[Rfam]
U12 minor spliceosomal RNA: a 158-nucleotide sequence from Anopheles darlingi. It is annotated as a spliceosomal small nuclear RNA. Taxonomically the source falls in argyritarsis series (Eukaryota, Diptera, Anophelinae, Anopheles). Clan: U2 clan. The family has 62 seed sequences and 2,106 matches in Rfam 15.1.
RNA sequence: GUGCCUUAAACUAAUGAGUAAGGAAAAUUACGGGCCUUGGUGACGCUUGGCCUGUCCGCACUCCGGUGCGGGCAUCUGACAAUUUUUGAAGAGGACAAGAUCGUCCCUUGAGCGUCCUGCCUACUUUGCAGGAUGCUCGGGUGCUUGCGAUCUACCUC
Numbered sequence: 001g002u003g004c005c006u007u008a009a010a011c012u013a014a015u016g017a018g019u020a021a022g023g024a025a026a027a028u029u030a031c032g033g034g035c036c037u038u039g040g041u042g043a044c045g046c047u048u049g050g051c052c053u054g055u056c057c058g059c060a061c062u063c064c065g066g067u068g069c070g071g072g073c074a075u076c077u078g079a080c081a082a083u084u085u086u087u088g089a090a091g092a093g094g095a096c097a098a099g100a101u102c103g104u105c106c107c108u109u110g111a112g113c114g115u116c117c118u119g120c121c122u123a124c125u126u127u128g129c130a131g132g133a134u135g136c137u138c139g140g141g142u143g144c145u146u147g148c149g150a151u152c153u154a155c156c157u158c
Base pairs, nucleotide, nucleotide: 004023005022006021007020008019032053033052034051035050036049039046055072056071057070058069059068091158092157093156094155098153099152100151101150102149103148104147107141108140110138111137112136113135114134116132117131118130119129120128
Dot-bracket structure: ...(((((..........)))))........(((((..(......)..))))).(((((........)))))..................((((...(((((((..((.(((((.(((((.......))))).))))).)).....))))))).))))